The record is a 97-nucleotide RNA sequence from Blautia argi, which matches "Glycine riboswitch aptamer" in Rfam.
[Rfam]
RNA sequence: GGAUGGCUCUCUGGAGAAUCCCAUGUAUGGGUGCCGAAGGUGUAAGCAGAAGGAAAACUUCUGUGAAUCUCUCAGGCAAAAGGACAGUGAAGUUUUA
Numbered sequence: 001g002g003a004u005g006g007c008u009c010u011c012u013g014g015a016g017a018a019u020c021c022c023a024u025g026u027a028u029g030g031g032u033g034c035c036g037a038a039g040g041u042g043u044a045a046g047c048a049g050a051a052g053g054a055a056a057a058c059u060u061c062u063g064u065g066a067a068u069c070u071c072u073c074a075g076g077c078a079a080a081a082g083g084a085c086a087g088u089g090a091a092g093u094u095u096u097a
Stems, first nucleotide, its partner, number of pairs: 008090002011087003020031004033077003036073002040071001042069001046064006
Rfam links the family to the GO term glycine biosynthetic process.
The organism belongs to Blautia, within Bacteria.